Record summary
Shown here is a 226-nucleotide RNA from Mediterraneibacter torques, a member of the family "Cis-regulator of HTH transcription factor". It is annotated as a cis-regulatory element.
RNA sequence: CUGUUUUACGCAUAAUUAAUCACCUCACUACAUUUUACUGUUCCUAAAGAAUUUGUAACAGGUACAGUAAAACGUAUUGCAAGGUUUAUCAGUUCCUAUGAACAGGUAAAUAACAAUAUAUGCUGCUUGGCGGUAAAAAAAAAACCGUUGUCAGCAGUAAUGCUUUUAUACGUCCUUUUAGAUAGAACGACGGUUCAUACAGCCGCCGUUUUAUUUUUGUCCAACG
Numbered sequence: 001c002u003g004u005u006u007u008a009c010g011c012a013u014a015a016u017u018a019a020u021c022a023c024c025u026c027a028c029u030a031c032a033u034u035u036u037a038c039u040g041u042u043c044c045u046a047a048a049g050a051a052u053u054u055g056u057a058a059c060a061g062g063u064a065c066a067g068u069a070a071a072a073c074g075u076a077u078u079g080c081a082a083g084g085u086u087u088a089u090c091a092g093u094u095c096c097u098a099u100g101a102a103c104a105g106g107u108a109a110a111u112a113a114c115a116a117u118a119u120a121u122g123c124u125g126c127u128u129g130g131c132g133g134u135a136a137a138a139a140a141a142a143a144a145c146c147g148u149u150g151u152c153a154g155c156a157g158u159a160a161u162g163c164u165u166u167u168a169u170a171c172g173u174c175c176u177u178u179u180a181g182a183u184a185g186a187a188c189g190a191c192g193g194u195u196c197a198u199a200c201a202g203c204c205g206c207c208g209u210u211u212u213a214u215u216u217u218u219g220u221c222c223a224a225c226g
Stems, first nucleotide, its partner, number of pairs: 002110001004108001007105001013101001015099002029076003033072004038067004043062003049056001078091002082087001121159007129152001130148004185211005191205005
On this family, see Soutourina et al., PLoS Genet 2013: "Genome-wide identification of regulatory RNAs in the human pathogen Clostridium difficile".